The family of this 69-nucleotide RNA from Homo sapiens is "mir-4523 microRNA precursor family". Rfam links the family to the GO terms miRNA-mediated post-transcriptional gene silencing and RISC complex.
RNA sequence: GCGGGGGACCGAGAGGGCCUCGGCUGUGUGAGGACUAGAGGCGGCCGAGGCCCGGGCCGGUUCCCCCGA
Numbered sequence: 001g002c003g004g005g006g007g008a009c010c011g012a013g014a015g016g017g018c019c020u021c022g023g024c025u026g027u028g029u030g031a032g033g034a035c036u037a038g039a040g041g042c043g044g045c046c047g048a049g050g051c052c053c054g055g056g057c058c059g060g061u062u063c064c065c066c067c068g069a
Stems, first nucleotide, its partner, number of pairs: 002068007009060003015053013029039001